Rfam assigns this 100-nucleotide sequence from Candidatus Xianfuyuplasma coldseepsis to the family "Purine riboswitch aptamer". Gene Ontology term of the family: purine nucleobase biosynthetic process. The source organism's lineage runs through Bacteria, Mycoplasmatota, Candidatus Izemoplasmatales, Candidatus Izemoplasmataceae and Candidatus Xianfuyuplasma. The match comes from Rfam's covariance-model search (76 bits).

[Rfam]
RNA sequence: UUAUAAUGAAGAAACUUUUCACGUAUAAUCGCUUUAAUAAGGAAAGCAAGUCUCUACCCUAAACCGUAAAUUUAGGACUACGUGCAAAUUACUCUACAAC
Numbered sequence: 001u002u003a004u005a006a007u008g009a010a011g012a013a014a015c016u017u018u019u020c021a022c023g024u025a026u027a028a029u030c031g032c033u034u035u036a037a038u039a040a041g042g043a044a045a046g047c048a049a050g051u052c053u054c055u056a057c058c059c060u061a062a063a064c065c066g067u068a069a070a071u072u073u074a075g076g077a078c079u080a081c082g083u084g085c086a087a088a089u090u091a092c093u094c095u096a097c098a099a100c
Stems, first nucleotide, its partner, number of pairs: 018086001020084006029049001031047005058076006